[Rfam]
RNA sequence: AUCUUAUCCAGAGUGGCUGAGGGAAGGGCCCUAUGACGCCACAGCAACCGGUCCACCGUUUUGGUGGACGCUGGUGCUAACUCCUGCCGAGCGCCCGUUCGGGCGAGAC
Dot-bracket structure: ......((....(((((...(((..[[[)))......)))))((((.((.((((((.......))))))...))))))...(]]].((((((....))))))...))).
Numbered sequence: 001a002u003c004u005u006a007u008c009c010a011g012a013g014u015g016g017c018u019g020a021g022g023g024a025a026g027g028g029c030c031c032u033a034u035g036a037c038g039c040c041a042c043a044g045c046a047a048c049c050g051g052u053c054c055a056c057c058g059u060u061u062u063g064g065u066g067g068a069c070g071c072u073g074g075u076g077c078u079a080a081c082u083c084c085u086g087c088c089g090a091g092c093g094c095c096c097g098u099u100c101g102g103g104c105g106a107g108a109c
Stems, first nucleotide, its partner, number of pairs: 007108002013042005021031003026085003043078004048074002051069006082106001087102006
A member of the RNA family "SAM riboswitch aptamer (S box leader)" from Planctomyces sp. SH-PL62, 109 nucleotides long. NCBI's taxonomy places the organism under Bacteria, Pseudomonadati, Planctomycetia, Planctomycetaceae, Planctomyces.